RNA sequence: UGUCAUCGAAGGAAUGCCUUAAUUCAUGACG
Numbered sequence: 001u002g003u004c005a006u007c008g009a010a011g012g013a014a015u016g017c018c019u020u021a022a023u024u025c026a027u028g029a030c031g
Base pairs, nucleotide, nucleotide: 001031002030003029004028005027006026008025009020010019011018012017
Background:
A member of the RNA family "S4-Flavobacteria ribosomal protein leader", 31 nucleotides long. A reference for the family is Eckert and Weinberg (2020), "Discovery of 20 novel ribosomal leader candidates in bacteria and archaea", BMC Microbiol.